A member of the RNA family "Alphacoronavirus 5'UTR" from Miniopterus pusillus bat coronavirus HKU8-related, 284 nucleotides long.
Pairs were carried over by alignment from the consensus structure.
Gene Ontology term of the family: viral RNA genome replication.
Taxonomically the source falls in Minunacovirus (Viruses, Riboviria, Pisuviricota, Nidovirales).
Rfam describes the family as follows. The first 150 to 200 nucleotides within the 5' UTR of alphacoronaviruses are highly structured and shown to be conserved on the structural level among alphacoronaviruses.
By type it is a cis-regulatory element.
RNA sequence: AAUCCAUCUAGCGACGGGUUAUACUCUUUUUAGACUGUUGUCUAAUCCCCUCAACUAAACGAAAUUUUUGCCAUACUUGUAUGGCGGAUUGAAAUUUCCCUAGGUUACCACCAUCCCGGCCCCAGUGUCGUGUCAUUCAGUGGUCCCUCGCACUGUUCCGUCAGUGCUUAAACCACUGUCUGACCUGCACGUAGUUCCGUCUGCGUGCAGUGUGGAUAGUACGUUCCGUCGUGCUUGAAACCGAUAACAGGUCGCUAUGGGUUCUAACCAUUUGACCCUGGCUU
Numbered sequence: 001a002a003u004c005c006a007u008c009u010a011g012c013g014a015c016g017g018g019u020u021a022u023a024c025u026c027u028u029u030u031u032a033g034a035c036u037g038u039u040g041u042c043u044a045a046u047c048c049c050c051u052c053a054a055c056u057a058a059a060c061g062a063a064a065u066u067u068u069u070g071c072c073a074u075a076c077u078u079g080u081a082u083g084g085c086g087g088a089u090u091g092a093a094a095u096u097u098c099c100c101u102a103g104g105u106u107a108c109c110a111c112c113a114u115c116c117c118g119g120c121c122c123c124a125g126u127g128u129c130g131u132g133u134c135a136u137u138c139a140g141u142g143g144u145c146c147c148u149c150g151c152a153c154u155g156u157u158c159c160g161u162c163a164g165u166g167c168u169u170a171a172a173c174c175a176c177u178g179u180c181u182g183a184c185c186u187g188c189a190c191g192u193a194g195u196u197c198c199g200u201c202u203g204c205g206u207g208c209a210g211u212g213u214g215g216a217u218a219g220u221a222c223g224u225u226c227c228g229u230c231g232u233g234c235u236u237g238a239a240a241c242c243g244a245u246a247a248c249a250g251g252u253c254g255c256u257a258u259g260g261g262u263u264c265u266a267a268c269c270a271u272u273u274g275a276c277c278c279u280g281g282c283u284u
Stems, first nucleotide, its partner, number of pairs: 001020001003018003007014002031044005061098007069086006105267003112259003117254003121251002125248001126246005139177004150167006187208008212241002218235006